[Rfam]
Shown here is a 117-nucleotide sequence from Nakamurella flavida, a member of the family "SAM (S-adenosyl methionine) riboswitch aptamer". The source organism's lineage runs through Bacteria, Bacillati, Actinomycetota, Actinomycetes and Nakamurella. Its Rfam clan is "SAM clan".

RNA sequence: GGUCAUGAGUCCCAGCGCCAAGCCCCGGCUCGCUGGGCGGCAACCCUCCACACGCGGUGGGGUGCCCCGGGUGAUGACCGGGCCGACCGCCGCCCCGGCGGCCGGCAAGCGCGGGUC
Number, nucleotide and partner (000 for none) at each position: 001g079002g078003u077004c076005a000006u000007g000008a000009g038010u000011c037012c036013c035014a034015g033016c032017g000018c000019c000020a000021a030022g029023c000024c000025c000026c000027g000028g000029c022030u021031c000032g016033c015034u014035g013036g012037g011038c009039g066040g065041c064042a000043a000044c062045c061046c060047u000048c057049c056050a000051c000052a000053c000054g000055c000056g049057g048058u000059g000060g046061g045062g044063u000064g041065c040066c039067c000068c000069g000070g000071g000072u000073g000074a000075u000076g004077a003078c002079c001080g000081g000082g106083c105084c104085g103086a000087c101088c100089g099090c098091c097092g000093c000094c000095c000096c000097g091098g090099c089100g088101g087102c000103c085104g084105g083106c082107a000108a000109g000110c000111g000112c000113g000114g000115g000116u000117c000